Record summary: Shown here is a 167-nucleotide RNA, a member of the family "RtT RNA". For this family Rfam cites "A novel RNA product of the tyrT operon of Escherichia coli" (Bosl and Kersten, Nucleic Acids Res, 1991).
[Rfam]
RNA sequence: UAGCUCAGUUGGUAGAGCAGUUGACUUUUAAUCAAUUGGUCGCAGGUUCGAAUCCUGCACGACCCACCAGUUUUAACAUCAAACUCAGAUGUUAAGCGUGAAGGAUAACGUUACGCCAGCAACGGCCCGUAGGGCGAGCGAAGCGAGUCAUCCUGCACGAGCCACCA
Numbered sequence: 001u002a003g004c005u006c007a008g009u010u011g012g013u014a015g016a017g018c019a020g021u022u023g024a025c026u027u028u029u030a031a032u033c034a035a036u037u038g039g040u041c042g043c044a045g046g047u048u049c050g051a052a053u054c055c056u057g058c059a060c061g062a063c064c065c066a067c068c069a070g071u072u073u074u075a076a077c078a079u080c081a082a083a084c085u086c087a088g089a090u091g092u093u094a095a096g097c098g099u100g101a102a103g104g105a106u107a108a109c110g111u112u113a114c115g116c117c118a119g120c121a122a123c124g125g126c127c128c129g130u131a132g133g134g135c136g137a138g139c140g141a142a143g144c145g146a147g148u149c150a151u152c153c154u155g156c157a158c159g160a161g162c163c164a165c166c167a
Stems, first nucleotide, its partner, number of pairs: 015158001017156004022150001037136002040134002047131001049129002055103001109124004114119001
Dot-bracket structure: ..............(.((((.(..............((.((.....(.((....(...............................................).....((((.(....).))))...)).).)))).............)..)))).).........